[Rfam]
RNA sequence: AAUGAACACCCAAGCUUUUUUUACUUUCUUUUUUAUUCCACCCUUCUAGGGAGGCGGAAUUUCGGUGUAAAAACGAAAGUAAAAAUUCCAAGGCCUCCCAUUAUGGGGGGCUUUUUUAUU
Numbered sequence: 001a002a003u004g005a006a007c008a009c010c011c012a013a014g015c016u017u018u019u020u021u022u023a024c025u026u027u028c029u030u031u032u033u034u035a036u037u038c039c040a041c042c043c044u045u046c047u048a049g050g051g052a053g054g055c056g057g058a059a060u061u062u063c064g065g066u067g068u069a070a071a072a073a074c075g076a077a078a079g080u081a082a083a084a085a086u087u088c089c090a091a092g093g094c095c096u097c098c099c100a101u102u103a104u105g106g107g108g109g110g111c112u113u114u115u116u117u118a119u120u
Stems, first nucleotide, its partner, number of pairs: 018085011030073002033070004041050002055064003090114010
Dot-bracket structure: .................(((((((((((.((.((((....((......))....(((....)))..)))).)).)))))))))))....((((((((((.....))))))))))......

Shown here is a 120-nucleotide sequence from Shewanella loihica, a member of the family "Phenylalanine leader peptide". The source organism's lineage runs through Bacteria, Gammaproteobacteria, Alteromonadales, Shewanella and Shewanella loihica. The family's consensus secondary structure was predicted with CMfinder. Rfam's curators put it in the seed alignment. By type it is a cis-regulatory leader.